[Rfam]
RNA sequence: AAUAAGAGAAUGACAAAUCAUAUUUUUUCACUUGAUUUUCAGCCUUUUCCUCCUGAAAAAAUUCGAAUCUAACUAAAAAUGCUAAAAAUUGGGAGAAAAAAAGUUGAUUUUUGAUUCUCCUAUU
Numbered sequence: 001a002a003u004a005a006g007a008g009a010a011u012g013a014c015a016a017a018u019c020a021u022a023u024u025u026u027u028u029c030a031c032u033u034g035a036u037u038u039u040c041a042g043c044c045u046u047u048u049c050c051u052c053c054u055g056a057a058a059a060a061a062u063u064c065g066a067a068u069c070u071a072a073c074u075a076a077a078a079a080u081g082c083u084a085a086a087a088a089u090u091g092g093g094a095g096a097a098a099a100a101a102a103g104u105u106g107a108u109u110u111u112u113g114a115u116u117c118u119c120c121u122a123u124u
Stems, first nucleotide, its partner, number of pairs: 001124004006119006013112001015110006023101005029095001031093009041083002045079004
This 124-nucleotide sequence from Gossypium gossypioides belongs to the Rfam family "MIR7504 microRNA precursor family". Taxonomically the source falls in Gossypium (Eukaryota, Embryophyta, malvids, Malvales). Its family is annotated with miRNA-mediated post-transcriptional gene silencing and RISC complex in the Gene Ontology. Rfam 15.1 lists 7,343 matches to the family in 61 species.